[Rfam]
RNA sequence: GCCGGGUUGGGUGGCGCCAACUUGUCACGGUCAUGCUUCUGACCGGGAAGUAAGGUAUACGCAUUGUGGCAUGGGUCAUUGUAGUACUAUACCCAGUAUGUGGAAGGCGCGUCCAUUUCAAACCAGGAGUUGACAUUGGAAAAUUAUCGUAAGAAAAAGUUUCAAGGUCACUAAGGAAGGGUGUACAGCCCCAGGCUGGAUAACAGAGCAGGGAAAAAUUCUCGCUCUUGGUAGUGGAAGGAUCUCGUGCCCGAAUACUGACGUGCGGCAAUGAUUCAAAAACAAAAUGCAAUUACCUCGCGA
Numbered sequence: 001g002c003c004g005g006g007u008u009g010g011g012u013g014g015c016g017c018c019a020a021c022u023u024g025u026c027a028c029g030g031u032c033a034u035g036c037u038u039c040u041g042a043c044c045g046g047g048a049a050g051u052a053a054g055g056u057a058u059a060c061g062c063a064u065u066g067u068g069g070c071a072u073g074g075g076u077c078a079u080u081g082u083a084g085u086a087c088u089a090u091a092c093c094c095a096g097u098a099u100g101u102g103g104a105a106g107g108c109g110c111g112u113c114c115a116u117u118u119c120a121a122a123c124c125a126g127g128a129g130u131u132g133a134c135a136u137u138g139g140a141a142a143a144u145u146a147u148c149g150u151a152a153g154a155a156a157a158a159g160u161u162u163c164a165a166g167g168u169c170a171c172u173a174a175g176g177a178a179g180g181g182u183g184u185a186c187a188g189c190c191c192c193a194g195g196c197u198g199g200a201u202a203a204c205a206g207a208g209c210a211g212g213g214a215a216a217a218a219u220u221c222u223c224g225c226u227c228u229u230g231g232u233a234g235u236g237g238a239a240g241g242a243u244c245u246c247g248u249g250c251c252c253g254a255a256u257a258c259u260g261a262c263g264u265g266c267g268g269c270a271a272u273g274a275u276u277c278a279a280a281a282a283c284a285a286a287a288u289g290c291a292a293u294u295a296c297c298u299c300g301c302g303a
Stems, first nucleotide, its partner, number of pairs: 002047002004023007028045005050301002053298005061290005067281001069277001071275002077273006084266001089264002093260001095259005101253001106251006113241002116239005122232009131170004136165006144157002147154002171175001178222005189213003196206003

The record is a 303-nucleotide sequence from Plasmopara halstedii, which matches "Metazoan signal recognition particle RNA" in Rfam. Lineage of the source: Eukaryota > Stramenopiles > Peronosporomycetes > Peronosporales > Plasmopara. Its family is annotated with signal recognition particle, endoplasmic reticulum targeting and SRP-dependent cotranslational protein targeting to membrane, signal sequence recognition in the Gene Ontology.